[Rfam]
RNA sequence: UAUUGUAUUAUAGCGCCAGAACUUUUAAAGUUGACGAGGACAGAGUUAUCGAAUAUUCGGCGGAUGCUCUGCGGUGUGGUUACAUCGAAAUGGUUUCAGCAAAUAUGACGGGUGACUGUCAAAACAAAAUGAAAUCAAUAACUUUCA
Numbered sequence: 001u002a003u004u005g006u007a008u009u010a011u012a013g014c015g016c017c018a019g020a021a022c023u024u025u026u027a028a029a030g031u032u033g034a035c036g037a038g039g040a041c042a043g044a045g046u047u048a049u050c051g052a053a054u055a056u057u058c059g060g061c062g063g064a065u066g067c068u069c070u071g072c073g074g075u076g077u078g079g080u081u082a083c084a085u086c087g088a089a090a091u092g093g094u095u096u097c098a099g100c101a102a103a104u105a106u107g108a109c110g111g112g113u114g115a116c117u118g119u120c121a122a123a124a125c126a127a128a129a130u131g132a133a134a135u136c137a138a139u140a141a142c143u144u145u146c147a
Stems, first nucleotide, its partner, number of pairs: 020032005041071005049060004072087005091137007106121006
RNA: glmS glucosamine-6-phosphate activated ribozyme aptamer
Organism: Sedimentibacter saalensis